[Rfam]
RNA sequence: AUUGUCUGUCCCAUGAAUCGGAUCUGGAGGUGAACCAUGUAUAUGGAUGAAGUGGUGAUUGCAGGUGUACUGACCGUUGGCCUGAUGGUGGUUUUUCUUGGCGGUUUUGCCUGGUUUGCCUGGCGUGACAGCCAGAAGCAAGACAAAAAGGGCUGAUACAUCGGUUUUCCCUGCCCUACGGAGGCAUCCGUGGUGGUGGGUUCUCCUCAAAGAGCAUGGCUCGCAAGGCCUUUGGCGAUCAUCCUGCGAUGAUCGCCUUUUUUUG
Number, nucleotide and partner (000 for none) at each position: 001a000002u000003u000004g000005u000006c000007u103008g102009u101010c100011c000012c000013a000014u000015g000016a000017a000018u000019c000020g000021g000022a000023u000024c000025u000026g000027g000028a000029g000030g000031u000032g000033a000034a000035c000036c000037a000038u000039g000040u000041a000042u000043a000044u000045g000046g000047a000048u000049g000050a000051a000052g062053u061054g060055g000056u000057g000058a000059u000060u054061g053062c052063a000064g000065g000066u000067g000068u000069a000070c000071u000072g000073a000074c000075c000076g000077u000078u000079g000080g089081c088082c087083u000084g000085a000086u000087g082088g081089u080090g000091g000092u000093u000094u000095u000096u000097c000098u000099u000100g010101g009102c008103g007104g000105u000106u000107u000108u000109g000110c000111c000112u000113g000114g000115u000116u000117u000118g000119c000120c000121u000122g000123g000124c000125g000126u000127g000128a000129c000130a000131g000132c000133c000134a000135g000136a000137a000138g000139c000140a000141a000142g000143a000144c000145a000146a000147a000148a000149a000150g000151g000152g000153c000154u000155g000156a000157u000158a000159c000160a000161u000162c000163g000164g000165u000166u000167u000168u000169c000170c000171c000172u000173g000174c228175c227176c000177u000178a000179c000180g000181g000182a000183g000184g000185c000186a000187u000188c000189c000190g000191u000192g000193g000194u000195g000196g000197u000198g000199g000200g000201u000202u000203c000204u000205c000206c000207u000208c000209a000210a000211a000212g000213a000214g000215c000216a000217u000218g000219g000220c000221u000222c000223g000224c000225a000226a000227g175228g174229c000230c000231u000232u000233u000234g257235g256236c255237g254238a253239u252240c251241a250242u249243c248244c000245u000246g000247c000248g243249a242250u241251g240252a239253u238254c237255g236256c235257c234258u000259u000260u000261u000262u000263u000264u000265g000
The record is a 265-nucleotide RNA from Halopseudomonas yangmingensis, which matches "PhrS" in Rfam. Rfam links the family to the GO term quorum sensing. It is annotated as a small RNA.